[Rfam]
RNA sequence: AAAUUCCUGUCCCUGCAAGGGCUAGCCACUCACAGGGAACCGAGUCUUGCGUGAGCGGUAGCGAUGCUGUUGGCGAAGCGUAGACAGGGCGAUGUCCAGGCCGCAACCACAUGGUGAAGGGAUUGAGCCUCGUAACGGUGUAGACCAAGGGCCGACGGCGUCGGAAGUGCCGGAAGGCAACAGUAGAUACUCGUAAUCGGCGAGAGUAUUGGAGACCUUGGUUGGGUCGAAGCCCG
Numbered sequence: 001a002a003a004u005u006c007c008u009g010u011c012c013c014u015g016c017a018a019g020g021g022c023u024a025g026c027c028a029c030u031c032a033c034a035g036g037g038a039a040c041c042g043a044g045u046c047u048u049g050c051g052u053g054a055g056c057g058g059u060a061g062c063g064a065u066g067c068u069g070u071u072g073g074c075g076a077a078g079c080g081u082a083g084a085c086a087g088g089g090c091g092a093u094g095u096c097c098a099g100g101c102c103g104c105a106a107c108c109a110c111a112u113g114g115u116g117a118a119g120g121g122a123u124u125g126a127g128c129c130u131c132g133u134a135a136c137g138g139u140g141u142a143g144a145c146c147a148a149g150g151g152c153c154g155a156c157g158g159c160g161u162c163g164g165a166a167g168u169g170c171c172g173g174a175a176g177g178c179a180a181c182a183g184u185a186g187a188u189a190c191u192c193g194u195a196a197u198c199g200g201c202g203a204g205a206g207u208a209u210u211g212g213a214g215a216c217c218u219u220g221g222u223u224g225g226g227u228c229g230a231a232g233c234c235c236g
Stems, first nucleotide, its partner, number of pairs: 012036004019031003023203001025201002040088002044085004048080002050075003054071007124230001125228001127227004132222001145221006151178003156172004184212001186210007
The family of this 236-nucleotide sequence from Paenalicyclobacillus mengziensis is "Group II catalytic intron D1-D4-6". The match comes from Rfam's covariance-model search (140 bits). Rfam 15.1 lists 1,617 matches to the family in 661 species. The pairing is the family consensus, mapped onto this sequence. Group II introns are found in rRNA, tRNA and mRNA of organelles in fungi, plants and protists, and also in mRNA in bacteria.